[Rfam]
RNA sequence: UAUCAAUGAGGGCAAACCCAUCGAAAGGUGGGGACGCAAAGCCUCCGGCCUAACAGCGCGACAGAACAACGUCAGCGCCACGGUAGCGGGGUUGCCAAU
Numbered sequence: 001u002a003u004c005a006a007u008g009a010g011g012g013c014a015a016a017c018c019c020a021u022c023g024a025a026a027g028g029u030g031g032g033g034a035c036g037c038a039a040a041g042c043c044u045c046c047g048g049c050c051u052a053a054c055a056g057c058g059c060g061a062c063a064g065a066a067c068a069a070c071g072u073c074a075g076c077g078c079c080a081c082g083g084u085a086g087c088g089g090g091g092u093u094g095c096c097a098a099u
Stems, first nucleotide, its partner, number of pairs: 012037002017032006040093004045089003048084003056078004